RNA sequence: UGUCUCCUCCACCUCCUUCAAUGGUGGAUUAAGCCCGGAGCCUGCAAAGGCCCCGGGCUCUUUUCU
Dot-bracket structure: .......((((((.........))))))...(((((((..............))))))).......
RNA: Betaproteobacteria toxic small RNA
Organism: Rubrivivax sp. A210